[Rfam]
RNA sequence: CUUUAACAAUCUGGAACAAGCUGAAAAUUGAAACAUGACGGCUGAAACUUGUCCCCCGUAGCAGUUUGGGAUGAGGAGUAACCUGUCAUAGAGUCUCUCAAAUGUAGCAAUACGAUGAUGUCGAAAGACACCUUCGG
Number, nucleotide and partner (000 for none) at each position: 001c000002u000003u000004u000005a000006a000007c000008a000009a000010u000011c000012u000013g000014g000015a000016a000017c000018a000019a000020g108021c107022u000023g000024a105025a000026a000027a103028u102029u101030g000031a000032a000033a000034c091035a000036u088037g087038a086039c085040g084041g083042c000043u000044g000045a000046a000047a000048c000049u000050u000051g000052u000053c000054c000055c000056c000057c000058g000059u000060a000061g000062c000063a000064g000065u000066u000067u000068g000069g000070g000071a000072u000073g000074a000075g000076g000077a000078g000079u000080a000081a000082c000083c041084u040085g039086u038087c037088a036089u000090a000091g034092a000093g000094u000095c000096u000097c000098u000099c000100a000101a029102a028103u027104g000105u024106a000107g021108c020109a000110a000111u000112a000113c136114g135115a134116u000117g132118a000119u130120g129121u000122c000123g000124a000125a000126a000127g000128a000129c120130a119131c000132c117133u000134u115135c114136g113137g000
Notes: Salmonella enterica Typhi npcRNA 44: a 137-nucleotide RNA from Serratia odorifera. On this family, see Chinni et al., Nucleic Acids Res 2010: "Experimental identification and characterization of 97 novel npcRNA candidates in Salmonella enterica serovar Typhi". Pairs were carried over by alignment from the consensus structure, which was predicted with CMfinder. Lineage of the source: Bacteria > Pseudomonadati > Gammaproteobacteria > Serratia > Serratia odorifera.